[Rfam]
RNA sequence: CCAGCUGUUUGCCCUACGCCCCCUUGGCAAGUAGGGAGACACCUCGCGUACGACUGGAUCGGACACAGUUUGUCCCGCCAGAUU
Numbered sequence: 001c002c003a004g005c006u007g008u009u010u011g012c013c014c015u016a017c018g019c020c021c022c023c024u025u026g027g028c029a030a031g032u033a034g035g036g037a038g039a040c041a042c043c044u045c046g047c048g049u050a051c052g053a054c055u056g057g058a059u060c061g062g063a064c065a066c067a068g069u070u071u072g073u074c075c076c077g078c079c080a081g082a083u084u
Stems, first nucleotide, its partner, number of pairs: 001046001003044002007040004012036006018028003052084002054081004061075004
A member of the RNA family "livK RNA" from Pseudomonas syringae group genomosp. 3, 84 nucleotides long. The family's consensus secondary structure is taken from published work. The family's RNA type in Rfam is cis-regulatory element. The organism belongs to Pseudomonas syringae pv. tomato, within Bacteria. The sequence is in the family's curated seed alignment.